RNA sequence: CUCUUAUGAAGAGUGGCGGAGGGAAGUGCCCUAUGAAGCCCAGCAACCACCAUUAUGGAAAGGUGCCAAAUCACACAAAGAAAAAUCUUUGACAGAUGAGAG
Numbered sequence: 001c002u003c004u005u006a007u008g009a010a011g012a013g014u015g016g017c018g019g020a021g022g023g024a025a026g027u028g029c030c031c032u033a034u035g036a037a038g039c040c041c042a043g044c045a046a047c048c049a050c051c052a053u054u055a056u057g058g059a060a061a062g063g064u065g066c067c068a069a070a071u072c073a074c075a076c077a078a079a080g081a082a083a084a085a086u087c088u089u090u091g092a093c094a095g096a097u098g099a100g101a102g
Base pairs, nucleotide, nucleotide: 001102002101003100004099005098006097007096013041015040016039017038021031022030023029026074027073028072043066044065045064047063048062050058051057052056071094076091077090078089079088080087081086
RNA: SAM riboswitch aptamer (S box leader)